[Rfam]
RNA sequence: UAGACUGAGGAUCGCCCCCCGUCAGCGCGUUGCGCCCACGGGGGCUCUACUG
Numbered sequence: 001u002a003g004a005c006u007g008a009g010g011a012u013c014g015c016c017c018c019c020c021g022u023c024a025g026c027g028c029g030u031u032g033c034g035c036c037c038a039c040g041g042g043g044g045c046u047c048u049a050c051u052g
Stems, first nucleotide, its partner, number of pairs: 016044007025035004

The family of this 52-nucleotide RNA from Octadecabacter antarcticus is "ffh sRNA".
It is one of the family's seed sequences.
The source organism's lineage runs through Bacteria, Pseudomonadati, Pseudomonadota, Octadecabacter and Octadecabacter antarcticus.
Rfam classes the family as a small RNA.
For this family Rfam cites "Identification of candidate structured RNAs in the marine organism 'Candidatus Pelagibacter ubique'" (Meyer et al., BMC Genomics, 2009).